Rfam assigns this 149-nucleotide sequence from Dichanthelium oligosanthes to the family "mir-166 microRNA precursor family". A search with the family's covariance model found it, with a score of 74 bits.
RNA sequence: UUUGAGGGGAAUGUUGUCUGGCUCGGGGGCGCCGCUCUUUCUCUGACCUGCCCCUUUCUCCUCUAUCUCGCUCUUGGAGAUCAAGAGGAGAAGGGCAGGAUUGAGAGGAGAUGGGUGUGGAUCUCGGACCAGGCUUCAUUCCCCCCAAA
Numbered sequence: 001u002u003u004g005a006g007g008g009g010a011a012u013g014u015u016g017u018c019u020g021g022c023u024c025g026g027g028g029g030c031g032c033c034g035c036u037c038u039u040u041c042u043c044u045g046a047c048c049u050g051c052c053c054c055u056u057u058c059u060c061c062u063c064u065a066u067c068u069c070g071c072u073c074u075u076g077g078a079g080a081u082c083a084a085g086a087g088g089a090g091a092a093g094g095g096c097a098g099g100a101u102u103g104a105g106a107g108g109a110g111a112u113g114g115g116u117g118u119g120g121a122u123c124u125c126g127g128a129c130c131a132g133g134c135u136u137c138a139u140u141c142c143c144c145c146c147a148a149a
Base pairs, nucleotide, nucleotide: 001149002148003147004146006144007143008142009141010140011139012138013137016134017133018132019131020130021129024126025125026124027123028122
From the family's description: This family represents the plant microRNA (miRNA) precursor mir-166.